[Rfam]
RNA sequence: CACCGCCCGUCGCUACUACCGAUUGGGUGUACCAGUGAGAGCCUUGGACUGGCGGCCGUUGCUUUCCUUCAUGGUAGCAAACGGACUCGACUGAAAGAGGUCCGAACUGGUGCACUUAGAGGAAGUAAAAGUCGUAACAAGGUUUCCGUAGGUGAACUGCGGAAGGAUCAUUA
Numbered sequence: 001c002a003c004c005g006c007c008c009g010u011c012g013c014u015a016c017u018a019c020c021g022a023u024u025g026g027g028u029g030u031a032c033c034a035g036u037g038a039g040a041g042c043c044u045u046g047g048a049c050u051g052g053c054g055g056c057c058g059u060u061g062c063u064u065u066c067c068u069u070c071a072u073g074g075u076a077g078c079a080a081a082c083g084g085a086c087u088c089g090a091c092u093g094a095a096a097g098a099g100g101u102c103c104g105a106a107c108u109g110g111u112g113c114a115c116u117u118a119g120a121g122g123a124a125g126u127a128a129a130a131g132u133c134g135u136a137a138c139a140a141g142g143u144u145u146c147c148g149u150a151g152g153u154g155a156a157c158u159g160c161g162g163a164a165g166g167a168u169c170a171u172u173a
Stems, first nucleotide, its partner, number of pairs: 003141001005138001008134002011131001014127004019122002023118001025117012039103001041101005049093001051091001053089001054086001056084004060079004143165009
Eukaryotic small subunit ribosomal RNA: a 173-nucleotide part of an RNA from Gonodactylaceus falcatus. NCBI's taxonomy places the organism under Eukaryota, Panarthropoda, Mandibulata, Malacostraca, Gonodactylaceus. Its family is annotated with structural constituent of ribosome and ribosome in the Gene Ontology. The family's consensus secondary structure is taken from published work.